The family of this 98-nucleotide RNA sequence from Coprococcus sp. CAG:782 is "Purine riboswitch aptamer". The base pairs follow the family's consensus structure, which is taken from published work. Rfam's curators write: Riboswitches are metabolite binding domains within certain messenger RNAs that serve as precision sensors for their corresponding targets.
[Rfam]
RNA sequence: UCUGCUAUCAUGAAUAAGGAUUAUAUAAGUUCAUAAUACGGAUGAAUGUUUCUACUAACUACCGCAAAUAGUUAUCUAUAAUUCAAUUAUAGGUAUAU
Numbered sequence: 001u002c003u004g005c006u007a008u009c010a011u012g013a014a015u016a017a018g019g020a021u022u023a024u025a026u027a028a029g030u031u032c033a034u035a036a037u038a039c040g041g042a043u044g045a046a047u048g049u050u051u052c053u054a055c056u057a058a059c060u061a062c063c064g065c066a067a068a069u070a071g072u073u074a075u076c077u078a079u080a081a082u083u084c085a086a087u088u089a090u091a092g093g094u095a096u097a098u
Base pairs, nucleotide, nucleotide: 018084019083020082021081022080023079024078025077029047030046031045032044033043034042056074057073058072059071060070061069